RNA: Small nucleolar RNA SNORD10
Organism: Oncorhynchus mykiss
RNA sequence: GUUUUAUUAAACUUGUGCUUGUCAACUGAUCCCAGAAUCCCCUGGGGCUCCCUGUGGCCUGGGUUGGCCUUCUGUCAGCUGGUUGUUACUGGGCCUCAGGGCUCUGGGGGCAUGAUCUGACUGUCACCCUGAAAAC
Numbered sequence: 001g002u003u004u005u006a007u008u009a010a011a012c013u014u015g016u017g018c019u020u021g022u023c024a025a026c027u028g029a030u031c032c033c034a035g036a037a038u039c040c041c042c043u044g045g046g047g048c049u050c051c052c053u054g055u056g057g058c059c060u061g062g063g064u065u066g067g068c069c070u071u072c073u074g075u076c077a078g079c080u081g082g083u084u085g086u087u088a089c090u091g092g093g094c095c096u097c098a099g100g101g102c103u104c105u106g107g108g109g110g111c112a113u114g115a116u117c118u119g120a121c122u123g124u125c126a127c128c129c130u131g132a133a134a135a136c
Stems, first nucleotide, its partner, number of pairs: 001136004040101011